[Rfam]
RNA sequence: GCUGGGAGGAAGCUCUCCGUAGAGGCUACGUGCUGGGUGUACGUCACUCCAAAAGCGCCUCUGGGAAGGUCUGAGAGAAGGGCUGUCCAACCACUCUAGCAGGGUUCCGCCCUCGGAAGGCGGGUGAGUUCCCAGCAAUGUGGGCCUCCAGCCGAGCCACCUCAUUGGAGCAAAAGAAGCAGGAGAGAGGCAGGUCCUUCUUCUCCUGCGGAUGCUUCCGUGGCCGGCUGGGGGUUUGGGAACGACUCACGGCCAGCGUCCAUGAGUACAAUGGGAAGAGGUGAAGCCGGAUCCGGCUUCAUAACCCAAUUCAGACUACUCUCCGCCCAGC
Numbered sequence: 001g002c003u004g005g006g007a008g009g010a011a012g013c014u015c016u017c018c019g020u021a022g023a024g025g026c027u028a029c030g031u032g033c034u035g036g037g038u039g040u041a042c043g044u045c046a047c048u049c050c051a052a053a054a055g056c057g058c059c060u061c062u063g064g065g066a067a068g069g070u071c072u073g074a075g076a077g078a079a080g081g082g083c084u085g086u087c088c089a090a091c092c093a094c095u096c097u098a099g100c101a102g103g104g105u106u107c108c109g110c111c112c113u114c115g116g117a118a119g120g121c122g123g124g125u126g127a128g129u130u131c132c133c134a135g136c137a138a139u140g141u142g143g144g145c146c147u148c149c150a151g152c153c154g155a156g157c158c159a160c161c162u163c164a165u166u167g168g169a170g171c172a173a174a175a176g177a178a179g180c181a182g183g184a185g186a187g188a189g190g191c192a193g194g195u196c197c198u199u200c201u202u203c204u205c206c207u208g209c210g211g212a213u214g215c216u217u218c219c220g221u222g223g224c225c226g227g228c229u230g231g232g233g234g235u236u237u238g239g240g241a242a243c244g245a246c247u248c249a250c251g252g253c254c255a256g257c258g259u260c261c262a263u264g265a266g267u268a269c270a271a272u273g274g275g276a277a278g279a280g281g282u283g284a285a286g287c288c289g290g291a292u293c294c295g296g297c298u299u300c301a302u303a304a305c306c307c308a309a310u311u312c313a314g315a316c317u318a319c320u321c322u323c324c325g326c327c328c329a330g331c
Stems, first nucleotide, its partner, number of pairs: 001331004008324003013280004017275002021062005035049005071314005081254004093105004107123005124250007144235011281302007
Shown here is a 331-nucleotide RNA from Phrynocephalus forsythii, a member of the family "Nuclear RNase P". For this family Rfam cites "Ribonuclease P: unity and diversity in a tRNA processing ribozyme" (Frank and Pace, Annu Rev Biochem, 1998). Rfam classes the family as a ribozyme. Ribonuclease P (RNase P) is a ubiquitous endoribonuclease, found in archaea, bacteria and eukarya as well as chloroplasts and mitochondria. Its best characterised activity is the generation of mature 5'-ends of tRNAs by cleaving the 5'-leader elements of precursor-tRNAs. Cellular RNase Ps are ribonucleoproteins. It scores 180 bits against the family's covariance model. The source organism's lineage runs through Eukaryota, Gnathostomata, Teleostomi, Acrodonta and Phrynocephalus.